[Rfam]
RNA: ZMP/ZTP riboswitch aptamer (pfl RNA motif)
Organism: Microbacterium lacticum
RNA sequence: UCGCUGUGUCGCGACUGGCGUUGAGGUGGGCCACCACCGGGGAGCGACCACAUGGCAAUCGACCGUUCGCCUGGGUCGGUCUG
Numbered sequence: 001u002c003g004c005u006g007u008g009u010c011g012c013g014a015c016u017g018g019c020g021u022u023g024a025g026g027u028g029g030g031c032c033a034c035c036a037c038c039g040g041g042g043a044g045c046g047a048c049c050a051c052a053u054g055g056c057a058a059u060c061g062a063c064c065g066u067u068c069g070c071c072u073g074g075g076u077c078g079g080u081c082u083g
Base pairs, nucleotide, nucleotide: 005050006049008048009047010046011045012044015041016040017071018070019069020068026037027036028035029034060078061077062076063075064074